A member of the RNA family "SAH (S-adenosyl-L-homocysteine) riboswitch aptamer" from Pseudaquabacterium pictum, 101 nucleotides long. NCBI's taxonomy places the organism under Bacteria, Pseudomonadati, Betaproteobacteria, Burkholderiales, Pseudaquabacterium. A search with the family's covariance model found it, with a score of 60 bits.
[Rfam]
RNA sequence: CUCCCCGAGGAGCGUUGCGACGGCGGUUCAGCCCUGAACCUGCUGCCAGGCUCGGGGCGGUGCCGGUGUCCAUCGGUGCCUGGCAACGGCGCUCACCCACC
Numbered sequence: 001c002u003c004c005c006c007g008a009g010g011a012g013c014g015u016u017g018c019g020a021c022g023g024c025g026g027u028u029c030a031g032c033c034c035u036g037a038a039c040c041u042g043c044u045g046c047c048a049g050g051c052u053c054g055g056g057g058c059g060g061u062g063c064c065g066g067u068g069u070c071c072a073u074c075g076g077u078g079c080c081u082g083g084c085a086a087c088g089g090c091g092c093u094c095a096c097c098c099a100c101c
Base pairs, nucleotide, nucleotide: 003057004056005055006054007053008052021045022044023043024042025041026040